[Rfam]
RNA sequence: GGAGUCGGCCAGACAGUCGCUGCUUUCUUUACGGAAGUGGAGGAAAGUCCGGGCUCCACAGGGCAAGGCGCCAGGUAACGCCUGGGAGGCGCGAGCCUACGGAAAGUGCCGCAGAAAAUAUACCGCCUAAGCGCCGCAAGGUGCCGGUAAGGGUGAAAUGGUGCGGUAAGAGCGCACCGCGCUUCCGGUAACGGAAGUGGCAGGGAAAACCCCGCCCGGAGCAAGACCAAAUAGGGGAGCAUGGGGAUUCGUCCCCGACGCGUGGCCCGCGCGGCUCCCGGGUAGGUCGCUUGAGGCGUUUGGCGACAAACGUCCCAGAUGAAUGACUGUCCACGACAGAACCCGGCUUAUCGGCCGACUCCCCCU
Numbered sequence: 001g002g003a004g005u006c007g008g009c010c011a012g013a014c015a016g017u018c019g020c021u022g023c024u025u026u027c028u029u030u031a032c033g034g035a036a037g038u039g040g041a042g043g044a045a046a047g048u049c050c051g052g053g054c055u056c057c058a059c060a061g062g063g064c065a066a067g068g069c070g071c072c073a074g075g076u077a078a079c080g081c082c083u084g085g086g087a088g089g090c091g092c093g094a095g096c097c098u099a100c101g102g103a104a105a106g107u108g109c110c111g112c113a114g115a116a117a118a119u120a121u122a123c124c125g126c127c128u129a130a131g132c133g134c135c136g137c138a139a140g141g142u143g144c145c146g147g148u149a150a151g152g153g154u155g156a157a158a159u160g161g162u163g164c165g166g167u168a169a170g171a172g173c174g175c176a177c178c179g180c181g182c183u184u185c186c187g188g189u190a191a192c193g194g195a196a197g198u199g200g201c202a203g204g205g206a207a208a209a210c211c212c213c214g215c216c217c218g219g220a221g222c223a224a225g226a227c228c229a230a231a232u233a234g235g236g237g238a239g240c241a242u243g244g245g246g247a248u249u250c251g252u253c254c255c256c257g258a259c260g261c262g263u264g265g266c267c268c269g270c271g272c273g274g275c276u277c278c279c280g281g282g283u284a285g286g287u288c289g290c291u292u293g294a295g296g297c298g299u300u301u302g303g304c305g306a307c308a309a310a311c312g313u314c315c316c317a318g319a320u321g322a323a324u325g326a327c328u329g330u331c332c333a334c335g336a337c338a339g340a341a342c343c344c345g346g347c348u349u350a351u352c353g354g355c356c357g358a359c360u361c362c363c364c365c366u
Base pairs, nucleotide, nucleotide: 001362002361003360004359005358006357007356008355009354010353011351012331013330014329015328016327017326018325020040021039022038023037024036025035026034027033045349046348047347049346050345051344052343053342054221055220056219057218061268062267063266064265067216068215069214070213071085072084073083074082075081086100087098088097089096090095101212102211106210107209109205110204123152124151125148126147127146131144132143133142134141135140160178161177162176163175164174165173179201180199181198182197183196184195185194186193187192225288226287227286228285235279236278237277238276239275240274259273260272261271262270263269295314296313297312298311299310300309301308302307
Rfam assigns this 366-nucleotide RNA from Methylogaea oryzae to the family "Bacterial RNase P class A". Taxonomically the source falls in Methylogaea (Bacteria, Pseudomonadati, Pseudomonadota, Methylococcaceae). Gene Ontology terms of the family: dimeric ribonuclease P complex, ribonuclease P activity and tRNA processing. Rfam classes the family as a ribozyme.